[Rfam]
Nucleotides: 121
Base pairs, nucleotide, nucleotide: 007029008028010026011025012024049075050074052072053071055069
Number, partner (000 for none) and nucleotide at each position: 001000g002000g003000u004000c005000a006000u007029a008028c009000c010026u011025c012024c013000a014000u015000u016000u017000a018000a019000a020000a021000c022000a023000c024012g025011g026010g027000a028008g029007u030000c031000g032000c033000u034000c035000c036000c037000g038000g039000c040000c041000u042000g043000u044000u045000c046000a047000c048000u049075c050074u051000a052072g053071g054000a055069g056000c057000c058000c059000a060000u061000u062000a063000c064000c065000a066000u067000g068000g069055c070000a071053c072052u073000g074050a075049g076000c077000g078000u079000u080000g081000a082000a083000g084000a085000a086000a087000a088000a089000g090000c091000c092000c093000a094000g095000a096000u097000c098000g099000u100000u101000a102000a103000c104000g105000a106000c107000u108000a109000c110000a111000a112000g113000c114000a115000a116000g117000c118000u119000g120000a121000a